[Rfam]
RNA sequence: CUGUCCCUAGAUAAUCCGUCCUAGUUACGAAAGUAAAGGAAGAUAUAAUGAGUUAGGCAAUAGUUGGUAUUGUACUAUACGUGAUAAUGCUAGACCUAGGCACGUUAAAAUUAUAU
Numbered sequence: 001c002u003g004u005c006c007c008u009a010g011a012u013a014a015u016c017c018g019u020c021c022u023a024g025u026u027a028c029g030a031a032a033g034u035a036a037a038g039g040a041a042g043a044u045a046u047a048a049u050g051a052g053u054u055a056g057g058c059a060a061u062a063g064u065u066g067g068u069a070u071u072g073u074a075c076u077a078u079a080c081g082u083g084a085u086a087a088u089g090c091u092a093g094a095c096c097u098a099g100g101c102a103c104g105u106u107a108a109a110a111u112u113a114u115a116u
Base pairs, nucleotide, nucleotide: 006100007099008098009097010096018095019094021093022092023091024090025036026035027034028033043116044115045114046113047112048111049110054077055076056075079105080104081103082102083101
Rfam assigns this 116-nucleotide sequence to the family "EGFOA RNA".
The base pairs follow the family's consensus structure, which is taken from published work.
It is one of the family's seed sequences.